[Rfam]
RNA sequence: UAACCCGUGUUGAAAGGCACGGCUGAACUGGCAGGAGUCAGCAGAUGUCAUAGUACCUGUGAGGAGACGUCCAAACAGGGAAGGAC
Numbered sequence: 001u002a003a004c005c006c007g008u009g010u011u012g013a014a015a016g017g018c019a020c021g022g023c024u025g026a027a028c029u030g031g032c033a034g035g036a037g038u039c040a041g042c043a044g045a046u047g048u049c050a051u052a053g054u055a056c057c058u059g060u061g062a063g064g065a066g067a068c069g070u071c072c073a074a075a076c077a078g079g080g081a082a083g084g085a086c
Stems, first nucleotide, its partner, number of pairs: 001025002005022007037046003047086003056079005

Rfam assigns this 86-nucleotide RNA from Effusibacillus lacus to the family "Group II catalytic intron D1-D4-1". Rfam links the family to the GO term Group II intron splicing. The organism belongs to Effusibacillus, within Bacteria. About the family: Group II introns are found in rRNA, tRNA and mRNA of organelles in fungi, plants and protists, and also in mRNA in bacteria.